[Rfam]
Shown here is a 57-nucleotide RNA from Brochothrix campestris, a member of the family "Ribosomal protein L13 leader". Its family is annotated with regulation of gene expression in the Gene Ontology. On this family, see Zengel and Lindahl, Prog Nucleic Acid Res Mol Biol 1994: "Diverse mechanisms for regulating ribosomal protein synthesis in Escherichia coli". NCBI's taxonomy places the organism under Bacteria, Bacillota, Caryophanales, Listeriaceae, Brochothrix campestris. Rfam's curators write: This family is a putative r-protein leader autoregulatory structure found in B. subtilis and other low-GC Gram-positive bacteria. It is located in the 5' untranslated regions of mRNAs encoding the L13-S9 (rplM-rpsI) ribosomal protein operon.
RNA sequence: GGUAUUGUUUACCCCAUGAUAAGCCCCGGAAACUUAUUAUGCUUAUACAAACAAUGA
Numbered sequence: 001g002g003u004a005u006u007g008u009u010u011a012c013c014c015c016a017u018g019a020u021a022a023g024c025c026c027c028g029g030a031a032a033c034u035u036a037u038u039a040u041g042c043u044u045a046u047a048c049a050a051a052c053a054a055u056g057a
Stems, first nucleotide, its partner, number of pairs: 006053005015041009